[Rfam]
RNA sequence: AGCGGGGAAAGAAGACCCUGUUGAGCUUGACUCUAGUCUGACUUUGUAAAAUGAGUUGAGAGGUGUAGGAUAAGUGGGAGCUCUAGGGCGAAAUUAAAAUACCACUACUUUUAACGUUAUUUACUUAUUCCGUGAAUCAGAGGCAGGGCACGGUCCCUCUUUUUAGACCCAAGGCCGGCUUCAGCCGACCAAUUUGGGCAGAGGAUAUUAUCAGGUGGGGAGUUUGGCUGGGCAGCGCAUCUGUUAAAAGAUAAUGCUGGUGUCCUAAGAUGAGCUCAACAAGAACAGAAAUCAAAUGUGGAACAAAAGGGUAAAAGCUCGUUUAAUUUUAAUUUCUAGUACGAUUAUUAACAGUGAAAGCAUGGCCUAUCGAUCCUUUAGACCUUCAGAAUUUGAAGUUAGAGGUGUCAGAAAAGUUACCACAGGGAUAACUCGCUUGUGGAAGCCAAACAUUCAUCACGACGUUGCUUUUUGAUCCUUCGAUGUCGGCUCUUCCUAUCAUUGUGAAGCAGAAUUCACCAACUGCUGGAUUGUUCACCCACUAAUAGGGAAUGUGACAUGGGUUUAGACAGUCGUGAGACAGGUCAGUUUUUCCCUACU
Numbered sequence: 001a002g003c004g005g006g007g008a009a010a011g012a013a014g015a016c017c018c019u020g021u022u023g024a025g026c027u028u029g030a031c032u033c034u035a036g037u038c039u040g041a042c043u044u045u046g047u048a049a050a051a052u053g054a055g056u057u058g059a060g061a062g063g064u065g066u067a068g069g070a071u072a073a074g075u076g077g078g079a080g081c082u083c084u085a086g087g088g089c090g091a092a093a094u095u096a097a098a099a100u101a102c103c104a105c106u107a108c109u110u111u112u113a114a115c116g117u118u119a120u121u122u123a124c125u126u127a128u129u130c131c132g133u134g135a136a137u138c139a140g141a142g143g144c145a146g147g148g149c150a151c152g153g154u155c156c157c158u159c160u161u162u163u164u165a166g167a168c169c170c171a172a173g174g175c176c177g178g179c180u181u182c183a184g185c186c187g188a189c190c191a192a193u194u195u196g197g198g199c200a201g202a203g204g205a206u207a208u209u210a211u212c213a214g215g216u217g218g219g220g221a222g223u224u225u226g227g228c229u230g231g232g233c234a235g236c237g238c239a240u241c242u243g244u245u246a247a248a249a250g251a252u253a254a255u256g257c258u259g260g261u262g263u264c265c266u267a268a269g270a271u272g273a274g275c276u277c278a279a280c281a282a283g284a285a286c287a288g289a290a291a292u293c294a295a296a297u298g299u300g301g302a303a304c305a306a307a308a309g310g311g312u313a314a315a316a317g318c319u320c321g322u323u324u325a326a327u328u329u330u331a332a333u334u335u336c337u338a339g340u341a342c343g344a345u346u347a348u349u350a351a352c353a354g355u356g357a358a359a360g361c362a363u364g365g366c367c368u369a370u371c372g373a374u375c376c377u378u379u380a381g382a383c384c385u386u387c388a389g390a391a392u393u394u395g396a397a398g399u400u401a402g403a404g405g406u407g408u409c410a411g412a413a414a415a416g417u418u419a420c421c422a423c424a425g426g427g428a429u430a431a432c433u434c435g436c437u438u439g440u441g442g443a444a445g446c447c448a449a450a451c452a453u454u455c456a457u458c459a460c461g462a463c464g465u466u467g468c469u470u471u472u473u474g475a476u477c478c479u480u481c482g483a484u485g486u487c488g489g490c491u492c493u494u495c496c497u498a499u500c501a502u503u504g505u506g507a508a509g510c511a512g513a514a515u516u517c518a519c520c521a522a523c524u525g526c527u528g529g530a531u532u533g534u535u536c537a538c539c540c541a542c543u544a545a546u547a548g549g550g551a552a553u554g555u556g557a558c559a560u561g562g563g564u565u566u567a568g569a570c571a572g573u574c575g576u577g578a579g580a581c582a583g584g585u586c587a588g589u590u591u592u593u594c595c596c597u598a599c600u
Stems, first nucleotide, its partner, number of pairs: 001600002005597003009592002017426004022422002024418005030223004037215005046124003050121005056114007073106005080089002128203003132199001138196004146156004173190002176187002226238001227236003239261003243257002264365002270322006276302002279297001283293002303312002327351002332346001334344002354361002376404006384398004435476001437474001439473001441469002444466003487562001488560001491557001492554001493551005500525002504519005527541003531537001568586003572581003